[Rfam]
RNA sequence: UUCUUAUCGAGAGAGGUGGAGGGACUGGCCCUGCGAUACCUCAGCAACAGAUUCUUUUCUAGAAUACUGUGCUAAUUCCAGAAGCUUAAUGCUUGGAGAUAAGAA
Numbered sequence: 001u002u003c004u005u006a007u008c009g010a011g012a013g014a015g016g017u018g019g020a021g022g023g024a025c026u027g028g029c030c031c032u033g034c035g036a037u038a039c040c041u042c043a044g045c046a047a048c049a050g051a052u053u054c055u056u057u058u059c060u061a062g063a064a065u066a067c068u069g070u071g072c073u074a075a076u077u078c079c080a081g082a083a084g085c086u087u088a089a090u091g092c093u094u095g096g097a098g099a100u101a102a103g104a105a
Stems, first nucleotide, its partner, number of pairs: 001105008013042005021031003025081004043073004048069002051065004077097001082094004
Source information
The family of this 105-nucleotide RNA from Niallia taxi is "SAM riboswitch aptamer (S box leader)". The SAM riboswitch is found upstream of a number of genes which code for proteins involved in methionine or cysteine biosynthesis in Gram-positive bacteria. It scores 92 bits against the family's covariance model.